RNA: Glycine riboswitch aptamer
Organism: Paracoccus aestuarii
RNA sequence: AGGUGGAAUUCGGGAGACGCCGGCGCAUCGCGCCGGGGCCGAAGGAGAAGCCGCCCCGGCAAGCUCUCAGGCGAAAGGACCGUUCUCCGCAA
Numbered sequence: 001a002g003g004u005g006g007a008a009u010u011c012g013g014g015a016g017a018c019g020c021c022g023g024c025g026c027a028u029c030g031c032g033c034c035g036g037g038g039c040c041g042a043a044g045g046a047g048a049a050g051c052c053g054c055c056c057c058g059g060c061a062a063g064c065u066c067u068c069a070g071g072c073g074a075a076a077g078g079a080c081c082g083u084u085c086u087c088c089g090c091a092a
Stems, first nucleotide, its partner, number of pairs: 006087002011082003020036004038072003041068002045066003051059002